[Rfam]
Rfam assigns this 100-nucleotide RNA from Paenibacillus cremeus to the family "Purine riboswitch aptamer".
Rfam's curators write: Riboswitches are metabolite binding domains within certain messenger RNAs that serve as precision sensors for their corresponding targets.
Lineage of the source: Bacteria > Bacillati > Bacillota > Caryophanales > Paenibacillus.
RNA sequence: CUGAUGCUCAUAACUACUGUUCGUAUAUCCCUGGCAAUACGGGUUGGGGGUCUCUACAAGGAACCGAGAAUUCCUGACUACGAAUGGGUGUGGAUUUAUU
Dot-bracket structure: .................((((((((...(((((((.......))))))).........(((((.......)))))...))))))))..............
Numbered sequence: 001c002u003g004a005u006g007c008u009c010a011u012a013a014c015u016a017c018u019g020u021u022c023g024u025a026u027a028u029c030c031c032u033g034g035c036a037a038u039a040c041g042g043g044u045u046g047g048g049g050g051u052c053u054c055u056a057c058a059a060g061g062a063a064c065c066g067a068g069a070a071u072u073c074c075u076g077a078c079u080a081c082g083a084a085u086g087g088g089u090g091u092g093g094a095u096u097u098a099u100u
Stems, first nucleotide, its partner, number of pairs: 018086008029049007059075005